[Rfam]
RNA sequence: CGGGUGGUCCCAGGCCAGGGAAUUCGGCAAAUUAGCCCCGUACCUUCGGAAGAAGGGGUGCCUGCCUUGAGGAAGGGCAGGUCGCAGUGACCAAGGGGGGCCGACUGUUUAAUAAAAACAUAGUCAACCGCGAGUCCGAAAGGAUGAGUACGGUUGGUGAAUCCUGCCCAGUAGCGGCUUGUCAAGCAGAGUUACAACUCUGUGAAGCGCCGCUAGACGGCGGGGGUAACUAUAACCCUCUUAAGGUAGCGAAGUGCCUUGCCGCUGAAUUAGCGGCUCGCACGAAAGGAUCAACGAGCUCCCCACUGUCCCGGCCCGGGUCCCGGUGAACCUACAAUCUGGCGCAGAGACCAGAAC
Numbered sequence: 001c002g003g004g005u006g007g008u009c010c011c012a013g014g015c016c017a018g019g020g021a022a023u024u025c026g027g028c029a030a031a032u033u034a035g036c037c038c039c040g041u042a043c044c045u046u047c048g049g050a051a052g053a054a055g056g057g058g059u060g061c062c063u064g065c066c067u068u069g070a071g072g073a074a075g076g077g078c079a080g081g082u083c084g085c086a087g088u089g090a091c092c093a094a095g096g097g098g099g100g101c102c103g104a105c106u107g108u109u110u111a112a113u114a115a116a117a118a119c120a121u122a123g124u125c126a127a128c129c130g131c132g133a134g135u136c137c138g139a140a141a142g143g144a145u146g147a148g149u150a151c152g153g154u155u156g157g158u159g160a161a162u163c164c165u166g167c168c169c170a171g172u173a174g175c176g177g178c179u180u181g182u183c184a185a186g187c188a189g190a191g192u193u194a195c196a197a198c199u200c201u202g203u204g205a206a207g208c209g210c211c212g213c214u215a216g217a218c219g220g221c222g223g224g225g226g227u228a229a230c231u232a233u234a235a236c237c238c239u240c241u242u243a244a245g246g247u248a249g250c251g252a253a254g255u256g257c258c259u260u261g262c263c264g265c266u267g268a269a270u271u272a273g274c275g276g277c278u279c280g281c282a283c284g285a286a287a288g289g290a291u292c293a294a295c296g297a298g299c300u301c302c303c304c305a306c307u308g309u310c311c312c313g314g315c316c317c318g319g320g321u322c323c324c325g326g327u328g329a330a331c332c333u334a335c336a337a338u339c340u341g342g343c344g345c346a347g348a349g350a351c352c353a354g355a356a357c
Base pairs, nucleotide, nucleotide: 001325002324003323004322009320010319011318013316014315015314016313018311019310020309035059036058037057038056039055044049060082061081062080063079064078065077066076067075068074083087095304096303097302098301099300100299101298102296103295106120107119108118123158124157125156126155127154128153129152130151131148134145135144136143137142161291162290163289164288166221167220168219171218172217173214174213175212176211177210180209181208182207187202188201189200190199191198222240223239224238225237226236227235241245261277262276263275264274265273266272338355339354340353341352342351
RNA: Archaeal large subunit ribosomal RNA, nucleotides 1804 to 2160
Organism: candidate division MSBL1 archaeon SCGC-AAA382C18